[Rfam]
RNA sequence: UCGCAGUAGCGAUUGUAGCGAAAAUCCUUUUGUUACGUAGCUUUGCGAAGGAACAAAAGAUUGCAGCGGAAAGCGCGACGGCCC
Numbered sequence: 001u002c003g004c005a006g007u008a009g010c011g012a013u014u015g016u017a018g019c020g021a022a023a024a025u026c027c028u029u030u031u032g033u034u035a036c037g038u039a040g041c042u043u044u045g046c047g048a049a050g051g052a053a054c055a056a057a058a059g060a061u062u063g064c065a066g067c068g069g070a071a072a073g074c075g076c077g078a079c080g081g082c083c084c
Stems, first nucleotide, its partner, number of pairs: 009076003013072002018067002023062004029057006036050001
RNA: Flavo-1 RNA